[Rfam]
RNA sequence: AGCUCUAUGAUAAAUGCCGUUUUAGGCAAUAUACGCUAUUCCGAUUGUUAAUAUGAACGGAAAAUAAAUCUUAAUGAGAGCU
Numbered sequence: 001a002g003c004u005c006u007a008u009g010a011u012a013a014a015u016g017c018c019g020u021u022u023u024a025g026g027c028a029a030u031a032u033a034c035g036c037u038a039u040u041c042c043g044a045u046u047g048u049u050a051a052u053a054u055g056a057a058c059g060g061a062a063a064a065u066a067a068a069u070c071u072u073a074a075u076g077a078g079a080g081c082u
Stems, first nucleotide, its partner, number of pairs: 001082005
Dot-bracket structure: (((((........................................................................)))))
Shown here is an 82-nucleotide RNA sequence from Mikania micrantha, a member of the family "Small nucleolar RNA U54". Clan: U54 clan. By type it is a C/D-box small nucleolar RNA. Pairs were carried over by alignment from the consensus structure, which was predicted with PFOLD. The organism belongs to Mikania, within Eukaryota. On this family, see Chen et al., Nucleic Acids Res 2003: "The high diversity of snoRNAs in plants: identification and comparative study of 120 snoRNA genes from Oryza sativa". Rfam 15.1 lists 614 matches to the family in 206 species.